[Rfam]
RNA sequence: AAGGGAGCAAUACCACCUUCUUGUUUUAUCAAGAGGGCAAUAUUGCUCCUUUUUUU
Numbered sequence: 001a002a003g004g005g006a007g008c009a010a011u012a013c014c015a016c017c018u019u020c021u022u023g024u025u026u027u028a029u030c031a032a033g034a035g036g037g038c039a040a041u042a043u044u045g046c047u048c049c050u051u052u053u054u055u056u
Stems, first nucleotide, its partner, number of pairs: 001052012018035006
The record is a 56-nucleotide RNA sequence, which matches "Plastid-psbA-3 3UTR RNA" in Rfam. Plastid psbA-3 is a non-coding RNA (ncRNA) present in plastids. It was identified in inverted repeat sequences in the 3 prime untranslate region (3UTR) of photosystem II quinone-binding protein (psbA). Its Rfam clan is "Plastid-psbA 3UTR RNA clan". On this family, see Richter et al., Plant Commun 2023: "Retrograde signaling in plants: A critical review focusing on the GUN pathway and beyond".